The record is an 84-nucleotide RNA from Mus musculus, which matches "mir-671 microRNA precursor family" in Rfam.
[Rfam]
RNA sequence: GGCCAGGAAGAGGAGGAAGCCCUGGAGGGGCUGGAGGUGAUGGAUGUUUUCCUCCGGUUCUCAGGGCUCCACCUCUUUCGAGCC
Numbered sequence: 001g002g003c004c005a006g007g008a009a010g011a012g013g014a015g016g017a018a019g020c021c022c023u024g025g026a027g028g029g030g031c032u033g034g035a036g037g038u039g040a041u042g043g044a045u046g047u048u049u050u051c052c053u054c055c056g057g058u059u060c061u062c063a064g065g066g067c068u069c070c071a072c073c074u075c076u077u078u079c080g081a082g083c084c
Stems, first nucleotide, its partner, number of pairs: 001084003006079008015070003019067006027061011039049002